[Rfam]
RNA sequence: ACACAAGGAAGGAGGUGGUCCGCGAAAUUGUUAGCUUCAUGGACAUGUGAGGUGGCUGCGCGCUAGCACCACUGGCUCGGAGAAGCUAGCAGCCAACGCGCGCUGGCGAAUUCCCCGCAGCCACCCGGCCCCCGAGCUUCCGGUCUUGUCCAACCAGGAGCUUCGCUCGGGGGCCGCUCCAU
Numbered sequence: 001a002c003a004c005a006a007g008g009a010a011g012g013a014g015g016u017g018g019u020c021c022g023c024g025a026a027a028u029u030g031u032u033a034g035c036u037u038c039a040u041g042g043a044c045a046u047g048u049g050a051g052g053u054g055g056c057u058g059c060g061c062g063c064u065a066g067c068a069c070c071a072c073u074g075g076c077u078c079g080g081a082g083a084a085g086c087u088a089g090c091a092g093c094c095a096a097c098g099c100g101c102g103c104u105g106g107c108g109a110a111u112u113c114c115c116c117g118c119a120g121c122c123a124c125c126c127g128g129c130c131c132c133c134g135a136g137c138u139u140c141c142g143g144u145c146u147u148g149u150c151c152a153a154c155c156a157g158g159a160g161c162u163u164c165g166c167u168c169g170g171g172g173g174c175c176g177c178u179c180c181a182u
Stems, first nucleotide, its partner, number of pairs: 015059005061108007070100001072098001074094003126176012139158002142155003
This 182-nucleotide RNA belongs to the Rfam family "Actinobacteria sRNA Ms_IGR-5". The match comes from Rfam's covariance-model search (166 bits).